[Rfam]
RNA sequence: UCGCCAUGAUGGCAAUAUUUUUCGUCAACAGCAUCUCACAGUGUGAAUGGUGACGACUCUGGGCUGAGCAG
Numbered sequence: 001u002c003g004c005c006a007u008g009a010u011g012g013c014a015a016u017a018u019u020u021u022u023c024g025u026c027a028a029c030a031g032c033a034u035c036u037c038a039c040a041g042u043g044u045g046a047a048u049g050g051u052g053a054c055g056a057c058u059c060u061g062g063g064c065u066g067a068g069c070a071g
Stems, first nucleotide, its partner, number of pairs: 003069002008026004
The family of this 71-nucleotide RNA sequence from Columba livia is "Small nucleolar RNA SNORD56".
Its family is annotated with nucleolus and RNA processing in the Gene Ontology.
A reference for the family is Galardi et al. (2002), "Purified box C/D snoRNPs are able to reproduce site-specific 2'-O-methylation of target RNA in vitro", Mol Cell Biol.
Rfam 15.1 lists 796 matches to the family in 432 species.